[Rfam]
RNA sequence: UUUCUGCCCACCUGGAUGUCGAUCUUAGUCAUACGCUAUGUGAAUAUGACUAGAGACACAUUCAGCUGGGCGUUAGC
Numbered sequence: 001u002u003u004c005u006g007c008c009c010a011c012c013u014g015g016a017u018g019u020c021g022a023u024c025u026u027a028g029u030c031a032u033a034c035g036c037u038a039u040g041u042g043a044a045u046a047u048g049a050c051u052a053g054a055g056a057c058a059c060a061u062u063c064a065g066c067u068g069g070g071c072g073u074u075a076g077c
Base pairs, nucleotide, nucleotide: 005072006071007070008069009068012065013064014063015062016061017060018059019058023055027051028050029049030048031047032046033045
Dot-bracket structure: ....(((((..((((((((...(...(((((((...........)))))))...)..))))))))..))))).....